Shown here is a 174-nucleotide RNA sequence from Streptomyces sp. WAC 01438, a member of the family "c-di-AMP riboswitch aptamer (ydaO/yuaA leader)". Its family is annotated with cyclic-di-AMP binding and regulation of gene expression in the Gene Ontology.
RNA sequence: GCGCGGCCCCCGCCGAGUCCGUCCCUGUCCCUCGUGGCAGCCGGAGCCGGGGACCCACCGAGACACAUGGGGUGAAUCGGCCCACUCCUUCGCGGAGCGGCCGUAGGGCAACCCUUCCAAGCACCACCGCCCGAACCCGACAGCUAACCCGGUAGGCGGAACACUGGAAGGAGU
Numbered sequence: 001g002c003g004c005g006g007c008c009c010c011c012g013c014c015g016a017g018u019c020c021g022u023c024c025c026u027g028u029c030c031c032u033c034g035u036g037g038c039a040g041c042c043g044g045a046g047c048c049g050g051g052g053a054c055c056c057a058c059c060g061a062g063a064c065a066c067a068u069g070g071g072g073u074g075a076a077u078c079g080g081c082c083c084a085c086u087c088c089u090u091c092g093c094g095g096a097g098c099g100g101c102c103g104u105a106g107g108g109c110a111a112c113c114c115u116u117c118c119a120a121g122c123a124c125c126a127c128c129g130c131c132c133g134a135a136c137c138c139g140a141c142a143g144c145u146a147a148c149c150c151g152g153u154a155g156g157c158g159g160a161a162c163a164c165u166g167g168a169a170g171g172a173g174u
Base pairs, nucleotide, nucleotide: 011158012157013156014155018045019044020043046153047152048151049150050149051148056069057068070138071137072136078103079102080101081100106132107131108130109129